[Rfam]
RNA sequence: CCUCCGAAAUGUGAAAAAUUAUGGGGAAAAGUACCCAUCUAAGCCUCCCACCGUUAGGGAGUUUGGAAUACCUUUUCUAUACCAUA
Dot-bracket structure: ...................((((.(((.(((.......(((((.(((((.......)))))))))).....))).)))....))))

Shown here is an 86-nucleotide RNA sequence from Aedes flavivirus, a member of the family "Insect-specific Flavivirus 3' UTR cis-acting replication element (CRE)".
Flavi_ISFV_CRE is a Insect specific Flavivirus family.
The base pairs follow the family's consensus structure, which was predicted with LocARNA.